[Rfam]
RNA sequence: GAAGGUGUACCACGUGCGUUUAAAGGUAAACCCGGUGCACUGUAAUGAACCAUGGUACACCUUUAAGAACUUGGUACACUU
Numbered sequence: 001g002a003a004g005g006u007g008u009a010c011c012a013c014g015u016g017c018g019u020u021u022a023a024a025g026g027u028a029a030a031c032c033c034g035g036u037g038c039a040c041u042g043u044a045a046u047g048a049a050c051c052a053u054g055g056u057a058c059a060c061c062u063u064u065a066a067g068a069a070c071u072u073g074g075u076a077c078a079c080u081u
Base pairs, nucleotide, nucleotide: 003081004080005079006078007077008076009075010074011073012072014070015069019067020066021065022064023063024062025061026060027059030056031055032054035050036049038047039046
RNA: mir-938 microRNA precursor family
Organism: Cebus imitator